[Rfam]
RNA sequence: CCCAUAGCCGAAGAAUCGUCACUGAUCGAAGCUUGCACAAUGGACUCACGUUCCAGGCGGGAACGCCAAUUAAGCUUUGGGUUGAAAGUCUCCCACCAGACCGUAUGCGGAAAACGCAAUGAGAUUUAAAAAUUUUUACAAAUCGUUUAAAUCCACUCAUUAGAGUAGAAACUCGGUUGAUGUACAGGUGCUGUGGCUUGCCAUGGUCCUGUUACUCUCCUGAGUUUUUAUAUCUUCUGUCCCCUGGAAUUCUGCGAAUUCCAGCGGUGUCUUCGGUAAGGAAAUCUACGCAAAUGGGUUUCAAACCAUAGUUAUGACGAUUGUGACAAACUCUCGUUUUGUCGUAACCCAAUGGAGCUUACUUUUCUUGGUUUAUGG
Numbered sequence: 001c002c003c004a005u006a007g008c009c010g011a012a013g014a015a016u017c018g019u020c021a022c023u024g025a026u027c028g029a030a031g032c033u034u035g036c037a038c039a040a041u042g043g044a045c046u047c048a049c050g051u052u053c054c055a056g057g058c059g060g061g062a063a064c065g066c067c068a069a070u071u072a073a074g075c076u077u078u079g080g081g082u083u084g085a086a087a088g089u090c091u092c093c094c095a096c097c098a099g100a101c102c103g104u105a106u107g108c109g110g111a112a113a114a115c116g117c118a119a120u121g122a123g124a125u126u127u128a129a130a131a132a133u134u135u136u137u138a139c140a141a142a143u144c145g146u147u148u149a150a151a152u153c154c155a156c157u158c159a160u161u162a163g164a165g166u167a168g169a170a171a172c173u174c175g176g177u178u179g180a181u182g183u184a185c186a187g188g189u190g191c192u193g194u195g196g197c198u199u200g201c202c203a204u205g206g207u208c209c210u211g212u213u214a215c216u217c218u219c220c221u222g223a224g225u226u227u228u229u230a231u232a233u234c235u236u237c238u239g240u241c242c243c244c245u246g247g248a249a250u251u252c253u254g255c256g257a258a259u260u261c262c263a264g265c266g267g268u269g270u271c272u273u274c275g276g277u278a279a280g281g282a283a284a285u286c287u288a289c290g291c292a293a294a295u296g297g298g299u300u301u302c303a304a305a306c307c308a309u310a311g312u313u314a315u316g317a318c319g320a321u322u323g324u325g326a327c328a329a330a331c332u333c334u335c336g337u338u339u340u341g342u343c344g345u346a347a348c349c350c351a352a353u354g355g356a357g358c359u360u361a362c363u364u365u366u367c368u369u370g371g372u373u374u375a376u377g378g
Stems, first nucleotide, its partner, number of pairs: 002378006008371004014322006026080007050064005086360003090357004106118004235283004240278001244276001252267004324344006

Background:
The record is a 378-nucleotide RNA from Lachancea dasiensis, which matches "RNase MRP" in Rfam. The family has 66 seed sequences and 3,510 matches in Rfam 15.1. The family's RNA type in Rfam is ribozyme. RNase MRP is an enzymatically active ribonucleoprotein with two distinct roles in eukaryotes. The literature on the family includes a 1993 paper in FASEB J by Schmitt et al., "Secondary structure of RNase MRP RNA as predicted by phylogenetic comparison". The organism belongs to Lachancea, within Eukaryota.